[Rfam]
Shown here is a 174-nucleotide RNA from Lachnoclostridium sp. An196, a member of the family "Lysine riboswitch aptamer".
The organism belongs to Lachnoclostridium, within Bacteria.
A search with the family's covariance model found it, with a score of 93 bits.
Riboswitches are metabolite binding domains within certain messenger RNAs that serve as precision sensors for their corresponding targets. Allosteric rearrangement of mRNA structure is mediated by ligand binding, and this results in modulation of gene expression. This family includes riboswitches that sense lysine in a number of genes involved in lysine metabolism, including lysC.
RNA sequence: CGCCAAGAUAGAGGCGCGGGAUUCAAGAGUACCCGCCGGCAAGGACAGGCAUCCGCCGGAAGGGAAAAGGGGAGACCGCCGAAGCAGGGCAAAGGUGCCUGAGUUUGGUCUGCUGGGGCGUCGGGAAAUACCCGACGGACUGUCACAAAAGUUUUGUGAAGCGCUAUUGGAGCU
Number, nucleotide and partner (000 for none) at each position: 001c000002g000003c000004c000005a000006a000007g168008a167009u166010a165011g164012a000013g000014g000015c000016g079017c078018g077019g076020g000021a000022u073023u072024c071025a000026a000027g000028a000029g000030u000031a000032c064033c063034c062035g000036c000037c059038g000039g057040c000041a000042a000043g000044g000045a000046c000047a000048g000049g000050c000051a000052u000053c000054c000055g000056c000057c039058g000059g037060a000061a000062g034063g033064g032065a000066a000067a000068a000069g000070g000071g024072g023073a022074g000075a000076c019077c018078g017079c016080c000081g000082a000083a114084g113085c112086a111087g110088g109089g000090c107091a106092a105093a104094g000095g000096u000097g000098c000099c000100u000101g000102a000103g000104u093105u092106u091107g090108g000109u088110c087111u086112g085113c084114u083115g141116g140117g000118g000119c137120g136121u135122c134123g133124g132125g131126a000127a000128a000129u000130a000131c125132c124133c123134g122135a121136c120137g119138g000139a000140c116141u115142g000143u159144c158145a157146c156147a155148a154149a153150a000151g000152u000153u149154u148155u147156g146157u145158g144159a143160a000161g000162c000163g000164c011165u010166a009167u008168u007169g000170g000171a000172g000173c000174u000